The record is a 77-nucleotide sequence from Amborella trichopoda, which matches "Small nucleolar RNA snoR53Y" in Rfam.
It scores 44 bits against the family's covariance model.
Rfam 15.1 lists 513 matches to the family in 230 species.
It is annotated as a C/D-box small nucleolar RNA.
The family is grouped with related families in Rfam's "snoR53 clan".
Gene Ontology terms of the family: nucleolus and RNA processing.
The literature on the family includes a 2001 paper in RNA by Brown et al., "Multiple snoRNA gene clusters from Arabidopsis".
RNA sequence: GUUCCCAAUGAUGGUCCUAUUAUUGACCAUGCUAAUAUUGUAUUGAUGAUGAUUUUUUCGAUGUAAUUGAGGGAAUG
Numbered sequence: 001g002u003u004c005c006c007a008a009u010g011a012u013g014g015u016c017c018u019a020u021u022a023u024u025g026a027c028c029a030u031g032c033u034a035a036u037a038u039u040g041u042a043u044u045g046a047u048g049a050u051g052a053u054u055u056u057u058u059c060g061a062u063g064u065a066a067u068u069g070a071g072g073g074a075a076u077g
Stems, first nucleotide, its partner, number of pairs: 001076005